[Rfam]
RNA sequence: UACGGAGUAGAACGUAAAGCGUUAAGUGCUGGUGGAACGCAAUGUGAACGCCAGACGAAGGAUUUUUCCGCGAUUUUACGUUCGCAUUGGCCGCA
Numbered sequence: 001u002a003c004g005g006a007g008u009a010g011a012a013c014g015u016a017a018a019g020c021g022u023u024a025a026g027u028g029c030u031g032g033u034g035g036a037a038c039g040c041a042a043u044g045u046g047a048a049c050g051c052c053a054g055a056c057g058a059a060g061g062a063u064u065u066u067u068c069c070g071c072g073a074u075u076u077u078a079c080g081u082u083c084g085c086a087u088u089g090g091c092c093g094c095a
Base pairs, nucleotide, nucleotide: 001095003093004092005091010083011082012081013080014079015078016077017076018075019074020072021071022070026056027055029054030053031052032051033050034049040089041088042087043086044085060069061068062067
The family of this 95-nucleotide sequence from Levilactobacillus bambusae is "THF (Tetrahydrofolate) riboswitch aptamer". It scores 73 bits against the family's covariance model. Lineage of the source: Bacteria > Bacillati > Bacilli > Lactobacillaceae > Levilactobacillus. About the family: Tetrahydrofolate (THF) riboswitch was first reported for Ames et al. as an RNA motif in 5' untranslated (5'-UTR)regions of folate transport and biosynthesis genes in Firmicutes genomes.